[Rfam]
RNA sequence: AGACCGCUGAGAACCGUUUGAAUCAAAUAGUGGAGUGAUUCAAAAGAUUCUCACAAA
Dot-bracket structure: .......((((((.(.(((((((((..........))))))))).).))))))....
Numbered sequence: 001a002g003a004c005c006g007c008u009g010a011g012a013a014c015c016g017u018u019u020g021a022a023u024c025a026a027a028u029a030g031u032g033g034a035g036u037g038a039u040u041c042a043a044a045a046g047a048u049u050c051u052c053a054c055a056a057a
Stems, first nucleotide, its partner, number of pairs: 008053006015046001017044009